[Rfam]
A member of the RNA family "Actinobacteria sRNA Ms_IGR-5" from Cellulomonas sp. WB94, 234 nucleotides long. Lineage of the source: Bacteria > Bacillati > Micrococcales > Cellulomonadaceae > Cellulomonas.
RNA sequence: ACAUGGGAAAGGAGGUGGUCCCCGAGUGAAGAUUCUUGGGACGCGUGAGGUGACUGUCCGCUAGUCGCCCGAGCAUUCGGACGGACUGACUCGGUCCCCCCGCAGUGCCACCUGGACCCCUGCCGGGUCGGGCGGCGAGCGAGUACCAGGCAGUCACCGCAGCCCGUGGGAGCCGUGAUCUCGUCCUUCGCGGCAGGGACCCCGUCAGGGGGACCGGCCCACGGGCUGUCCUAU
Numbered sequence: 001a002c003a004u005g006g007g008a009a010a011g012g013a014g015g016u017g018g019u020c021c022c023c024g025a026g027u028g029a030a031g032a033u034u035c036u037u038g039g040g041a042c043g044c045g046u047g048a049g050g051u052g053a054c055u056g057u058c059c060g061c062u063a064g065u066c067g068c069c070c071g072a073g074c075a076u077u078c079g080g081a082c083g084g085a086c087u088g089a090c091u092c093g094g095u096c097c098c099c100c101c102g103c104a105g106u107g108c109c110a111c112c113u114g115g116a117c118c119c120c121u122g123c124c125g126g127g128u129c130g131g132g133c134g135g136c137g138a139g140c141g142a143g144u145a146c147c148a149g150g151c152a153g154u155c156a157c158c159g160c161a162g163c164c165c166g167u168g169g170g171a172g173c174c175g176u177g178a179u180c181u182c183g184u185c186c187u188u189c190g191c192g193g194c195a196g197g198g199a200c201c202c203c204g205u206c207a208g209g210g211g212g213a214c215c216g217g218c219c220c221a222c223g224g225g226c227u228g229u230c231c232u233a234u
Base pairs, nucleotide, nucleotide: 014058015057016056017055018054019053059141060140061139062138064136065135067133068132069131070130072128160228161227162226163225164224165223166222167221168220169219170218174209176207177206178205179204
Dot-bracket structure: .............((((((.................................))))))((((.((.((((.(.......................................................).)))).)).))))..................(((((((((((...(.((((........................)))).)........)))))))))))......
On this family, see Li et al., RNA 2013: "Identification of small RNAs in Mycobacterium smegmatis using heterologous Hfq". Rfam classes the family as a small RNA.